[Rfam]
RNA sequence: UCCAUGGGGAUGCGCGAUCUCCCCACGAGGCGCCAGCUGAAAAUCGUGUUCCGAUCCUGUCGAGAUGUUUCCAAGGAGGAACGCACAUG
Dot-bracket structure: ....((((((.........))))))....................((((((...........................)))))).....
About this RNA
The record is an 89-nucleotide RNA sequence from Roseovarius sp. 217, which matches "chrB-a RNA" in Rfam. It is one of the family's seed sequences.